[Rfam]
RNA sequence: CCAAGCUAUCUGGGGUGCUGUUACAGCUGAGAUGAUACCCAUUGAACCUGAUCUAGUUAGUACUAGUGGAGGAAGAUACGACUAUUUUGCU
Numbered sequence: 001c002c003a004a005g006c007u008a009u010c011u012g013g014g015g016u017g018c019u020g021u022u023a024c025a026g027c028u029g030a031g032a033u034g035a036u037a038c039c040c041a042u043u044g045a046a047c048c049u050g051a052u053c054u055a056g057u058u059a060g061u062a063c064u065a066g067u068g069g070a071g072g073a074a075g076a077u078a079c080g081a082c083u084a085u086u087u088u089g090c091u
Stems, first nucleotide, its partner, number of pairs: 007078004011041004016035001017027004047072003053066004
Shown here is a 91-nucleotide RNA sequence from Periweissella cryptocerci, a member of the family "TPP riboswitch aptamer (THI element)". Pairs were carried over by alignment from the consensus structure, which is taken from published work.